[Rfam]
RNA sequence: UUACCUGGUGGAGCUCCGACUGUGACUUGUGUUACUUAUCUAAUCUCACAUCACAGGCUGAGUUCUAGUUAGGUGG
Dot-bracket structure: ...(((..((((((((...((((((...(((...............))).))))))...))))))))...)))...
The family of this 76-nucleotide sequence is "mir-11 microRNA precursor family". For this family Rfam cites "Next-generation small RNA sequencing for microRNAs profiling in the honey bee Apis mellifera" (Chen et al., Insect Mol Biol, 2010). The base pairs follow the family's consensus structure, which was predicted with RNAalifold. Its Rfam clan is "mir-6 clan".